[Rfam]
RNA sequence: UUUUUAGUAUAACUAUGUCCUAUGUAAUAUUUAUGACAUACUUAUACCAAAA
Numbered sequence: 001u002u003u004u005u006a007g008u009a010u011a012a013c014u015a016u017g018u019c020c021u022a023u024g025u026a027a028u029a030u031u032u033a034u035g036a037c038a039u040a041c042u043u044a045u046a047c048c049a050a051a052a
Stems, first nucleotide, its partner, number of pairs: 007047006014040003018036002021033001022031001

Shown here is a 52-nucleotide RNA from Camelus dromedarius, a member of the family "mir-1302 microRNA precursor family". Rfam 15.1 lists 16,160 matches to the family in 135 species. Lineage of the source: Eukaryota > Opisthokonta > Vertebrata > Gnathostomata > Camelus. A reference for the family is Morin et al. (2008), "Application of massively parallel sequencing to microRNA profiling and discovery in human embryonic stem cells", Genome Res. Its family is annotated with miRNA-mediated post-transcriptional gene silencing and RISC complex in the Gene Ontology.